[Rfam]
Shown here is a 403-nucleotide RNA sequence from Cohnella faecalis, a member of the family "Bacterial RNase P class A". Rfam classes the family as a ribozyme. The base pairs follow the family's consensus structure, which is taken from published work. Taxonomically the source falls in Cohnella (Bacteria, Bacillati, Bacillota, Paenibacillaceae).
RNA sequence: AAAGGUUGACAGACAAUCGCUGGCGGCUUCGGCCGCGAGAGGAAAGUCCGGGCUUCGCAGGGCAGGAUGCUGGAUAACGUCCAGUCAGCGCGAGCUGAAGGAUAGGGCCACAGAAAUGGACCGCCGAUGGCCGCUUGCGGCACAGGCAAGGAUGGAACCGUGGUGUAAGAGACCACGAGGGGCACUGGCGACUUUGCCCCUGGUAAACCCCAUUUGAAGCAAGACCGAGGAGAACGCGGCUUAACGGCAGCCCUUGCCCGGGGUGCGUUCGGGUUGGUCGCUCGAGCCGUUCAGUAAUGGACGGCCUAGAAAGAUGAUUGUCGCUUCCAUCGUGGGAGGACGGCCAAUAACCGUCCGCUGCACCACCGGAAGUACAGAACCCGGCUUACGGCAAGCUUUCCGG
Numbered sequence: 001a002a003a004g005g006u007u008g009a010c011a012g013a014c015a016a017u018c019g020c021u022g023g024c025g026g027c028u029u030c031g032g033c034c035g036c037g038a039g040a041g042g043a044a045a046g047u048c049c050g051g052g053c054u055u056c057g058c059a060g061g062g063c064a065g066g067a068u069g070c071u072g073g074a075u076a077a078c079g080u081c082c083a084g085u086c087a088g089c090g091c092g093a094g095c096u097g098a099a100g101g102a103u104a105g106g107g108c109c110a111c112a113g114a115a116a117u118g119g120a121c122c123g124c125c126g127a128u129g130g131c132c133g134c135u136u137g138c139g140g141c142a143c144a145g146g147c148a149a150g151g152a153u154g155g156a157a158c159c160g161u162g163g164u165g166u167a168a169g170a171g172a173c174c175a176c177g178a179g180g181g182g183c184a185c186u187g188g189c190g191a192c193u194u195u196g197c198c199c200c201u202g203g204u205a206a207a208c209c210c211c212a213u214u215u216g217a218a219g220c221a222a223g224a225c226c227g228a229g230g231a232g233a234a235c236g237c238g239g240c241u242u243a244a245c246g247g248c249a250g251c252c253c254u255u256g257c258c259c260g261g262g263g264u265g266c267g268u269u270c271g272g273g274u275u276g277g278u279c280g281c282u283c284g285a286g287c288c289g290u291u292c293a294g295u296a297a298u299g300g301a302c303g304g305c306c307u308a309g310a311a312a313g314a315u316g317a318u319u320g321u322c323g324c325u326u327c328c329a330u331c332g333u334g335g336g337a338g339g340a341c342g343g344c345c346a347a348u349a350a351c352c353g354u355c356c357g358c359u360g361c362a363c364c365a366c367c368g369g370a371a372g373u374a375c376a377g378a379a380c381c382c383g384g385c386u387u388a389c390g391g392c393a394a395g396c397u398u399u400c401c402g403g
Stems, first nucleotide, its partner, number of pairs: 001399004006394003010390001012322007020039002023036005044387003048384005053219004060259004065215005070084005085099001086097004100210002105208001107204003121151002123147003128144002130141004159177006179200006187192001223279004232270006250264005286305008